[Rfam]
Nucleotides: 246
Base pairs, nucleotide, nucleotide: 001062002061003060004059005058006057008055010041011040013038014037015036016035017034018033042051043050044049065208066207067206070085071084072083073082074081088202089201090200091199092198093197094196095195096194097193098192103138104137107132108131112128113127114126115125116242119239120238121237122236123235140184141183142182143181144180145179146178147177148176152175153174155172156171157170158169159168160167161166
Number, partner (000 for none) and nucleotide at each position: 001062g002061u003060c004059a005058a006057c007000a008055a009000c010041c011040c012000a013038g014037c015036g016035c017034u018033a019000a020000u021000u022000c023000u024000c025000a026000a027000g028000g029000a030000a031000u032000a033018u034017a035016g036015c037014g038013u039000g040011g041010g042051c043050u044049u045000u046000u047000u048000u049044a050043a051042g052000c053000c054000c055008u056000a057006g058005u059004u060003g061002a062001c063000c064000a065208g066207a067206c068000u069000c070085a071084g072083g073082a074081a075000u076000u077000a078000a079000c080000u081074u082073u083072c084071c085070u086000a087000c088202g089201u090200u091199u092198u093197g094196a095195u096194c097193g098192u099000c100000a101000u102000g103138g104137u105000a106000c107132c108131u109000u110000c111000u112128g113127g114126a115125u116242g117000c118000g119239u120238c121237g122236c123235u124000a125115g126114u127113c128112c129000c130000u131108a132107g133000c134000u135000c136000u137104a138103c139000c140184g141183u142182u143181a144180g145179u146178c147177a148176u149000u150000a151000a152175a153174c154000a155172u156171u157170u158169u159168u160167a161166g162000a163000g164000g165000g166161u167160u168159a169158a170157g171156a172155a173000a174153g175152u176148g177147u178146g179145g180144c181143u182142a183141g184140c185000c186000u187000a188000a189000c190000a191000a192098g193097c194096g195095a196094u197093u198092a199091a200090a201089a202088c203000a204000u205000u206067g207066u208065c209000g210000u211000u212000c213000g214000c215000g216000c217000a218000g219000c220000g221000u222000c223000u224000c225000c226000c227000u228000u229000g230000g231000g232000a233000g234000a235123a236122g237121c238120g239119a240000a241000c242116c243000u244000u245000a246000c